The record is a 130-nucleotide RNA from Thermotalea metallivorans, which matches "PyrR binding site" in Rfam. It scores 54 bits against the family's covariance model. The family has 41 seed sequences and 1,498 matches in Rfam 15.1. NCBI's taxonomy places the organism under Bacteria, Bacillati, Clostridia, Thermotaleaceae, Thermotalea.
[Rfam]
RNA sequence: AAUGCCUUUAAAUUGGUCCUGUGAGGCCGGUAAGGAUGGAAUAUGGAGUGAAAAGGAUACGAUGAAUCCGUAUCUGUCUUUUGUCAUAGGUAUAUUGCAACCUUCUGUCUCCGGCAGAAGGUUUUUUUAU
Number, nucleotide and partner (000 for none) at each position: 001a000002a000003u000004g000005c035006c034007u033008u032009u000010a000011a000012a000013u030014u029015g028016g027017u026018c025019c000020u000021g000022u000023g000024a000025g018026g017027c016028c015029g014030g013031u000032a008033a007034g006035g005036a000037u000038g000039g000040a000041a000042u000043a000044u000045g000046g078047a077048g000049u000050g074051a073052a000053a071054a000055g069056g068057a067058u000059a000060c000061g000062a000063u000064g000065a000066a000067u057068c056069c055070g000071u053072a000073u051074c050075u000076g000077u047078c046079u000080u000081u000082u000083g000084u000085c000086a000087u000088a000089g000090g000091u000092a000093u000094a000095u000096u000097g125098c000099a123100a122101c121102c120103u119104u118105c117106u116107g115108u114109c113110u000111c000112c000113g109114g108115c107116a106117g105118a104119a103120g102121g101122u100123u099124u000125u097126u000127u000128u000129a000130u000